[Rfam]
A member of the RNA family "Small nucleolar RNA SNORA15" from Sagittarius serpentarius, 137 nucleotides long. ACA15 is a member of the H/ACA class of snoRNA that guide the sites of modification of uridines to pseudouridines. The literature on the family includes a 2001 paper in EMBO J by Huttenhofer et al., "RNomics: an experimental approach that identifies 201 candidates for novel, small, non-messenger RNAs in mouse". NCBI's taxonomy places the organism under Eukaryota, Craniata, Teleostomi, Accipitrimorphae, Sagittarius.

RNA sequence: GCAUGGACGAAUUCUGCACUAGCUUUCCUCAGUAGCUAAUGCAGUCAGACACUAUGCCAGAAUAAAUUCCUUUUUCACGCUGGUUGGUAUGCUUUUUAUAUGGAGAAUGGGCAUGCCUUUGGAAGUGGGAUACAUAA
Numbered sequence: 001g002c003a004u005g006g007a008c009g010a011a012u013u014c015u016g017c018a019c020u021a022g023c024u025u026u027c028c029u030c031a032g033u034a035g036c037u038a039a040u041g042c043a044g045u046c047a048g049a050c051a052c053u054a055u056g057c058c059a060g061a062a063u064a065a066a067u068u069c070c071u072u073u074u075u076c077a078c079g080c081u082g083g084u085u086g087g088u089a090u091g092c093u094u095u096u097u098a099u100a101u102g103g104a105g106a107a108u109g110g111g112c113a114u115g116c117c118u119u120u121g122g123a124a125g126u127g128g129g130a131u132a133c134a135u136a137a
Stems, first nucleotide, its partner, number of pairs: 001057006014044005068130003074125002083120001086117009